[Rfam]
RNA sequence: UACGACACUCAUCAAAGGAGUAGUACCCUCUUCCAGGAGCUACUUUUACCAUAUUCCUAAUUC
Numbered sequence: 001u002a003c004g005a006c007a008c009u010c011a012u013c014a015a016a017g018g019a020g021u022a023g024u025a026c027c028c029u030c031u032u033c034c035a036g037g038a039g040c041u042a043c044u045u046u047u048a049c050c051a052u053a054u055u056c057c058u059a060a061u062u063c
Base pairs, nucleotide, nucleotide: 017046018045019044020043021042022041023040024039026037027036

Notes
This 63-nucleotide RNA sequence from Tetracentron sinense belongs to the Rfam family "Plastid-psbN 5UTR RNA". It scores 56 bits against the family's covariance model. NCBI's taxonomy places the organism under Eukaryota, Embryophyta, Mesangiospermae, Trochodendrales, Tetracentron. From the family's description: Plastid psbN is a non-coding RNA (ncRNA) recognised in plastids. It was reported as a conserved 11 stem-loop in the prime untranslated region (5UTR) of psbN genes. It has been reported that the motif is retained in a subset of mature transcripts in barley, which can suggests a possible role in transcript alternative 5 prime processing.